Notes: This 353-nucleotide RNA sequence from Cavia porcellus belongs to the Rfam family "Mason-Pfizer monkey virus packaging signal". The organism belongs to Cavia, within Eukaryota. Rfam classes the family as a cis-regulatory element. A search with the family's covariance model found it, with a score of 60 bits.
RNA sequence: UGGCGCCCAACGUGUGGGCUCCUGGCAUGGGGGAGUCAACGAGGGAGCCGUUCGAGAAAGCCGGCUAAAAGUAAAAGCAAAUUGAACCAAAGACCACGGUGAGAAGUAAUAAGGCUAAAAGCAAAAGCACAUUAAAUUAAGGACUGAGGCCUGUGCGGAUGACUACCUGACGUGCCGCCCGAGUCAUGGUGAGUGAAUGGCGACCCCAUUCCCUUUCCUGGAUGUGGGUCAAGCAUUGAGCAAACACGAAUUGUUCGUGGGAGGCCUUAUAAAGGCAUUAAAGACAAGAGGAGUGAGGGUUAGAACAAAAGAAUUAUUGCAGUAUUUUCAAUUUAUUCUUAAGGUUUGCCCUU
Number, nucleotide and partner (000 for none) at each position: 001u000002g000003g000004c000005g000006c033007c032008c031009a000010a000011c000012g028013u027014g026015u000016g000017g000018g000019c000020u000021c000022c000023u000024g000025g000026c014027a013028u012029g000030g000031g008032g007033g006034a000035g000036u000037c000038a052039a051040c050041g049042a000043g000044g000045g000046a000047g000048c000049c041050g040051u039052u038053c000054g000055a000056g000057a000058a000059a000060g000061c000062c000063g000064g000065c000066u000067a000068a000069a000070a000071g000072u000073a000074a000075a000076a000077g000078c000079a000080a000081a194082u193083u192084g000085a000086a190087c189088c188089a187090a000091a000092g000093a000094c000095c000096a000097c000098g000099g000100u000101g000102a000103g000104a000105a000106g000107u000108a000109a000110u000111a000112a000113g000114g000115c000116u000117a000118a000119a000120a000121g000122c000123a000124a000125a000126a000127g000128c000129a000130c000131a000132u000133u000134a000135a000136a000137u000138u000139a000140a000141g000142g000143a000144c000145u000146g000147a000148g000149g000150c000151c000152u000153g000154u000155g000156c000157g000158g000159a000160u000161g000162a000163c000164u000165a000166c000167c000168u000169g000170a000171c000172g000173u000174g000175c000176c000177g000178c000179c000180c000181g000182a000183g000184u000185c000186a000187u089188g088189g087190u086191g000192a083193g082194u081195g000196a000197a000198u000199g000200g000201c000202g230203a229204c000205c228206c227207c226208a225209u000210u000211c000212c000213c000214u000215u000216u000217c000218c000219u000220g000221g000222a000223u000224g000225u208226g207227g206228g205229u203230c202231a000232a000233g000234c000235a000236u000237u280238g279239a278240g276241c275242a000243a000244a000245c000246a000247c000248g000249a000250a000251u000252u000253g000254u000255u000256c000257g000258u000259g000260g000261g000262a000263g000264g000265c000266c000267u000268u000269a000270u000271a000272a000273a000274g000275g241276c240277a000278u239279u238280a237281a000282a000283g000284a000285c000286a000287a000288g328289a327290g326291g325292a000293g323294u322295g000296a000297g315298g314299g000300u312301u311302a000303g000304a000305a000306c000307a000308a000309a000310a000311g301312a300313a000314u298315u297316a000317u000318u000319g000320c000321a000322g294323u293324a000325u291326u290327u289328u288329c000330a000331a000332u000333u000334u000335a000336u000337u000338c000339u000340u000341a353342a352343g351344g350345u000346u000347u000348g000349c000350c344351c343352u342353u341